The record is a 119-nucleotide sequence from Sodalis ligni, which matches "TPP riboswitch aptamer (THI element)" in Rfam. Its family is annotated with thiamine pyrophosphate binding in the Gene Ontology. Taxonomically the source falls in Sodalis (Bacteria, Pseudomonadati, Gammaproteobacteria, Bruguierivoracaceae).

RNA sequence: GCGUUCUCAACGGGGUGCGAUUUUUUCCGGCGCUAUGCCGCCGGUGAAUUUCGCUGAGACCACACCCGUCGAACCUGAUCCGGUUAAUACCGGCGAAGGGAUUUGAGAGCGCGCCGCGC
Numbered sequence: 001g002c003g004u005u006c007u008c009a010a011c012g013g014g015g016u017g018c019g020a021u022u023u024u025u026u027c028c029g030g031c032g033c034u035a036u037g038c039c040g041c042c043g044g045u046g047a048a049u050u051u052c053g054c055u056g057a058g059a060c061c062a063c064a065c066c067c068g069u070c071g072a073a074c075c076u077g078a079u080c081c082g083g084u085u086a087a088u089a090c091c092g093g094c095g096a097a098g099g100g101a102u103u104u105g106a107g108a109g110c111g112c113g114c115c116g117c118g119c
Base pairs, nucleotide, nucleotide: 006107007106008105009104010103011068012067013066014065016062017054018053019052020051074099075098076097080093081092082091083090